[Rfam]
The family of this 73-nucleotide RNA sequence from Fidelibacterota bacterium PRS2 is "tRNA".
The family's consensus secondary structure is taken from published work.
The match comes from Rfam's covariance-model search (70 bits).
The family has 954 seed sequences and 5,335,975 matches in Rfam 15.1.
NCBI's taxonomy places the organism under Bacteria, Pseudomonadati, Fidelibacterota.
RNA sequence: GACUCCGUAGCUCAGCUGGUAGAGCAGUAGCCUUUUAAGCUAUUGGUCGUGCGUUCGAGCCGCACCGGAGUCA
Numbered sequence: 001g002a003c004u005c006c007g008u009a010g011c012u013c014a015g016c017u018g019g020u021a022g023a024g025c026a027g028u029a030g031c032c033u034u035u036u037a038a039g040c041u042a043u044u045g046g047u048c049g050u051g052c053g054u055u056c057g058a059g060c061c062g063c064a065c066c067g068g069a070g071u072c073a
Base pairs, nucleotide, nucleotide: 001072002071003070004069005068006067007066010025011024012023013022027043028042029041030040031039049065050064051063052062053061